[Rfam]
RNA sequence: GCCGCACCUAGUCCGUGCUUAAUUACCACGGGCGAAAGCACAGAAACCCUUGCUGUGUUGGUGCGGCUUCUAUUCAGGG
Numbered sequence: 001g002c003c004g005c006a007c008c009u010a011g012u013c014c015g016u017g018c019u020u021a022a023u024u025a026c027c028a029c030g031g032g033c034g035a036a037a038g039c040a041c042a043g044a045a046a047c048c049c050u051u052g053c054u055g056u057g058u059u060g061g062u063g064c065g066g067c068u069u070c071u072a073u074u075c076a077g078g079g
Stems, first nucleotide, its partner, number of pairs: 001067008011033007039057005047079004

Notes: int-alpA RNA: a 79-nucleotide RNA sequence from Gallionella capsiferriformans. By type it is a small RNA. NCBI's taxonomy places the organism under Bacteria, Pseudomonadati, Nitrosomonadales, Gallionellaceae, Gallionella capsiferriformans. Acidobacteria (1 example), Planctomycetes (1 example), Proteobacteria.